Background
A member of the RNA family "Bacterial RNase P class A" from Methylobacterium radiotolerans, 399 nucleotides long. The base pairs follow the family's consensus structure, which is taken from published work. The source organism's lineage runs through Bacteria, Pseudomonadota, Alphaproteobacteria, Methylobacteriaceae and Methylobacterium radiotolerans. It is annotated as a ribozyme.

[Rfam]
RNA sequence: UCAGCCGGCCGGGCAGCCGCUCCGGACGCGCGAGCGUUCGGGGAGGAAAGUCCGGGCUCCAUGGAGAGACGGUGCCGGAUAACCUCCGGCGGGGGCGACCCCAGGGACAGUGCCACAGAGAGCAGACCGCCCCGGAUCCGUCCGGGGUCAGGGUGAAAGGGUGCGGUAAGAGCGCACCGCGGACGCGGCAACGCGGACGGCACGGCAAACCCCACCGGGAGCAAGACCGAAUAGGGGCGGCGCGCCCUUCGCGAGAAGGGCAGGCCGGCUCUCCAGGCCAGUCGCCCGGGUUGGUUGCUCGAGGCGGUCGGCAACGAUCGUCCCAGAGGAAUGGCUGCCACGUCGGCGCGCGCGAGCGCUCCGGCCCUACAGAACCCGGCUUACAGGCCGGCUGAUCCA
Numbered sequence: 001u002c003a004g005c006c007g008g009c010c011g012g013g014c015a016g017c018c019g020c021u022c023c024g025g026a027c028g029c030g031c032g033a034g035c036g037u038u039c040g041g042g043g044a045g046g047a048a049a050g051u052c053c054g055g056g057c058u059c060c061a062u063g064g065a066g067a068g069a070c071g072g073u074g075c076c077g078g079a080u081a082a083c084c085u086c087c088g089g090c091g092g093g094g095g096c097g098a099c100c101c102c103a104g105g106g107a108c109a110g111u112g113c114c115a116c117a118g119a120g121a122g123c124a125g126a127c128c129g130c131c132c133c134g135g136a137u138c139c140g141u142c143c144g145g146g147g148u149c150a151g152g153g154u155g156a157a158a159g160g161g162u163g164c165g166g167u168a169a170g171a172g173c174g175c176a177c178c179g180c181g182g183a184c185g186c187g188g189c190a191a192c193g194c195g196g197a198c199g200g201c202a203c204g205g206c207a208a209a210c211c212c213c214a215c216c217g218g219g220a221g222c223a224a225g226a227c228c229g230a231a232u233a234g235g236g237g238c239g240g241c242g243c244g245c246c247c248u249u250c251g252c253g254a255g256a257a258g259g260g261c262a263g264g265c266c267g268g269c270u271c272u273c274c275a276g277g278c279c280a281g282u283c284g285c286c287c288g289g290g291u292u293g294g295u296u297g298c299u300c301g302a303g304g305c306g307g308u309c310g311g312c313a314a315c316g317a318u319c320g321u322c323c324c325a326g327a328g329g330a331a332u333g334g335c336u337g338c339c340a341c342g343u344c345g346g347c348g349c350g351c352g353c354g355a356g357c358g359c360u361c362c363g364g365c366c367c368u369a370c371a372g373a374a375c376c377c378g379g380c381u382u383a384c385a386g387g388c389c390g391g392c393u394g395a396u397c398c399a
Base pairs, nucleotide, nucleotide: 001395002394003393004392005391006390007389008388009387010386011384012339013338014337015336016335017334018333020043021042022041023040024039025038026037027036028035048382049381050380052379053378054377055376056375057221058220059219060218066274068272070217071216072215073214074213075089076088077087078086079085090104091102092101093100094099105212106211110210111209112206113205114204127152128151129148130147131146132145133144134143135142136141160178161177162176163175164174165173179201180199181198184195185194186193187192225296226295227294228293235287236286237285238284239283240282267279268278269277270276303322304321305320306319307318308317309316310315